Record summary
RNase MRP: a 243-nucleotide RNA sequence from Papaver nudicaule. NCBI's taxonomy places the organism under Eukaryota, Streptophytina, Papaveraceae, Papaveroideae, Papaver. The match comes from Rfam's covariance-model search (78 bits). Rfam links the family to the GO terms ribonuclease MRP activity, ribonuclease MRP complex and rRNA processing.

[Rfam]
RNA sequence: GGACAUCAGGACGAAGUGAGUGGGUUCUUUGGACCCAGGAAAGUCCCCGGGCCCUAUGCCGUAGAGAUACGGGCUCGGAAACGAGUAAGCUUCAAGUAUUGGGAUCCGCUUGCCUUCGGGCAAAAGGCUGAGACAUGUGUGGAGCCUGGAUCUCUUUCCGUUGCAACCUUGGCCGAUUUAACACAGUUAUUCACUUGGUCCAUUCAUUUGGACUAACUGAACGGGGAUUACGAUUCUGAUGUC
Numbered sequence: 001g002g003a004c005a006u007c008a009g010g011a012c013g014a015a016g017u018g019a020g021u022g023g024g025u026u027c028u029u030u031g032g033a034c035c036c037a038g039g040a041a042a043g044u045c046c047c048c049g050g051g052c053c054c055u056a057u058g059c060c061g062u063a064g065a066g067a068u069a070c071g072g073g074c075u076c077g078g079a080a081a082c083g084a085g086u087a088a089g090c091u092u093c094a095a096g097u098a099u100u101g102g103g104a105u106c107c108g109c110u111u112g113c114c115u116u117c118g119g120g121c122a123a124a125a126g127g128c129u130g131a132g133a134c135a136u137g138u139g140u141g142g143a144g145c146c147u148g149g150a151u152c153u154c155u156u157u158c159c160g161u162u163g164c165a166a167c168c169u170u171g172g173c174c175g176a177u178u179u180a181a182c183a184c185a186g187u188u189a190u191u192c193a194c195u196u197g198g199u200c201c202a203u204u205c206a207u208u209u210g211g212a213c214u215a216a217c218u219g220a221a222c223g224g225g226g227a228u229u230a231c232g233a234u235u236c237u238g239a240u241g242u243c
Base pairs, nucleotide, nucleotide: 002243003242004241005240006239007238008237009236010235011234014196015195016194017193018192019191022036023035024034025033026032027031041229042228045226046225047224048223060071061070062069063068073086074085075084076083077082089167091165098161099160101158102157108154118147119146120145121144133140134139198213199212200211201210202209